[Rfam]
RNA sequence: UGGUUCAAGCAGAAGCUGCCCGCUUCUCACCUGAUUUAGACGCACUUUGCUGUUUACAGGUUUGACUAGUUGAAUUGUAAUACGUUGGUAAACGUAUGCACAUAUAGCGGGCGGACAUCUCUUAUAUGUCCGUCUUUUUUUUAUGGG
Numbered sequence: 001u002g003g004u005u006c007a008a009g010c011a012g013a014a015g016c017u018g019c020c021c022g023c024u025u026c027u028c029a030c031c032u033g034a035u036u037u038a039g040a041c042g043c044a045c046u047u048u049g050c051u052g053u054u055u056a057c058a059g060g061u062u063u064g065a066c067u068a069g070u071u072g073a074a075u076u077g078u079a080a081u082a083c084g085u086u087g088g089u090a091a092a093c094g095u096a097u098g099c100a101c102a103u104a105u106a107g108c109g110g111g112c113g114g115a116c117a118u119c120u121c122u123u124a125u126a127u128g129u130c131c132g133u134c135u136u137u138u139u140u141u142u143a144u145g146g147g
Stems, first nucleotide, its partner, number of pairs: 011027006029061003039054003042050002110134009
Ribosomal protein L20 leader: a 147-nucleotide RNA sequence from Lysinibacillus alkalisoli. A search with the family's covariance model found it, with a score of 65 bits. Lineage of the source: Bacteria > Bacillati > Caryophanales > Bacillaceae > Lysinibacillus. Rfam classes the family as a cis-regulatory leader. Its family is annotated with regulation of gene expression in the Gene Ontology. Rfam's curators write: This family is a putative r-protein leader autoregulatory structure found in B. subtilis and other low-GC Gram-positive bacteria.